[Rfam]
RNA sequence: UAUGUUGUCGACUAAUCGGUAAGUCAUAAAUUUUUGGUAUUUAUAUUGGGUGUUCGAGUCGCCCCAACAUAA
Dot-bracket structure: (((((((..((((........)))).(((((.......)))))....(((((.......)))))))))))).
RNA: tRNA